[Rfam]
RNA sequence: GAGCAGGGAGGGCAAAAGACAGGGACGAGGUAGAGCAUGGGAUGGGGUCAUCAACACAUACACGCCAGCUCAAAGCAUCGAACAUUCACGAGAGAAGCAAGGGAGCGAGAGAGAUCUUUGGUUGUUGCUGCUCUUCCCAUGCACUGCCUCUUCCCUGGCUCUCUCUCUCUCUCUCAAC
Numbered sequence: 001g002a003g004c005a006g007g008g009a010g011g012g013c014a015a016a017a018g019a020c021a022g023g024g025a026c027g028a029g030g031u032a033g034a035g036c037a038u039g040g041g042a043u044g045g046g047g048u049c050a051u052c053a054a055c056a057c058a059u060a061c062a063c064g065c066c067a068g069c070u071c072a073a074a075g076c077a078u079c080g081a082a083c084a085u086u087c088a089c090g091a092g093a094g095a096a097g098c099a100a101g102g103g104a105g106c107g108a109g110a111g112a113g114a115u116c117u118u119u120g121g122u123u124g125u126u127g128c129u130g131c132u133c134u135u136c137c138c139a140u141g142c143a144c145u146g147c148c149u150c151u152u153c154c155c156u157g158g159c160u161c162u163c164u165c166u167c168u169c170u171c172u173c174u175c176a177a178c
Base pairs, nucleotide, nucleotide: 017160018159020157021156022155023154024153025152028149029148030147031146032145033144035142036141037140038139039138041137045133046132047131048130
The family of this 178-nucleotide sequence from Cocos nucifera is "MIR408 microRNA precursor family".
Its family is annotated with RISC complex and miRNA-mediated post-transcriptional gene silencing in the Gene Ontology.
NCBI's taxonomy places the organism under Eukaryota, Spermatophyta, Magnoliopsida, Arecaceae, Cocos.
On this family, see Mica et al., BMC Genomics 2009: "High throughput approaches reveal splicing of primary microRNA transcripts and tissue specific expression of mature microRNAs in Vitis vinifera".